This 214-nucleotide RNA from Paradevosia tibetensis belongs to the Rfam family "permuted transfer-messenger RNA". The organism belongs to Paradevosia, within Bacteria. The family's RNA type in Rfam is non-coding RNA gene. It scores 142 bits against the family's covariance model. Gene Ontology term of the family: RNA catabolic process.
Nucleotides: 214
Stems, first nucleotide, its partner, number of pairs: 001136005014125004026114003030111003036052005053096007137153004
Number, partner (000 for none) and nucleotide at each position: 001136g002135g003134c004133g005132a006000u007000a008000a009000a010000c011000g012000g013000c014125c015124a016123u017122c018000a019000u020000a021000a022000u023000a024000a025000a026114c027113c028112c029000a030111u031110c032109g033000g034000a035000c036052c037051c038050g039049g040048g041000g042000g043000c044000a045000g046000u047000a048040c049039c050038c051037g052036g053096c054095g055094c056093c057092u058091c059090c060000a061000c062000c063000a064000a065000u066000u067000c068000c069000c070000c071000u072000g073000u074000c075000g076000c077000g078000g079000c080000a081000g082000g083000g084000g085000c086000c087000u088000g089000c090059g091058g092057g093056g094055g095054c096053g097000a098000a099000a100000u101000a102000g103000g104000a105000u106000c107000g108000a109032c110031g111030a112028g113027g114026g115000c116000g117000u118000a119000a120000a121000g122017g123016g124015u125014g126000u127000u128000g129000c130000u131000u132005u133004c134003g135002c136001u137153c138152g139151g140150u141000a142000u143000g144000g145000u146000a147000c148000c149000c150140g151139c152138c153137g154000a155000c156000a157000u158000c159000g160000g161000g162000c163000c164000a165000u166000c167000u168000u169000u170000a171000u172000a173000g174000u175000u176000g177000c178000c179000a180000a181000c182000g183000a184000c185000a186000a187000c188000u189000a190000u191000g192000c193000u194000a195000a196000g197000g198000u199000u200000g201000c202000u203000c204000u205000c206000g207000c208000u209000g210000c211000g212000u213000a214000a